[Rfam]
RNA: Small nucleolar RNA SNORA42/SNORA80 family
Organism: Phocoena sinus
RNA sequence: GCAUGGGUUUGGAUUUAUGGCAGGCCCAUCCCCCUGGGCCUCACACAGUGUCCCAUGCUGGAGCAAACUGGCUCGGAACCAUUGCCCGGCUUCUGCCUGUAGGCUGCAGGCACUGAAGCGGGUUGCACAGUG
Numbered sequence: 001g002c003a004u005g006g007g008u009u010u011g012g013a014u015u016u017a018u019g020g021c022a023g024g025c026c027c028a029u030c031c032c033c034c035u036g037g038g039c040c041u042c043a044c045a046c047a048g049u050g051u052c053c054c055a056u057g058c059u060g061g062a063g064c065a066a067a068c069u070g071g072c073u074c075g076g077a078a079c080c081a082u083u084g085c086c087c088g089g090c091u092u093c094u095g096c097c098u099g100u101a102g103g104c105u106g107c108a109g110g111c112a113c114u115g116a117a118g119c120g121g122g123u124u125g126c127a128c129a130g131u132g
Base pairs, nucleotide, nucleotide: 001058002057003056004055005053006052007051008050015048016047018045019044022041023040024039025037026036069125070124071123072122073121074120080115081114085110086109087106088105089104090103091102092101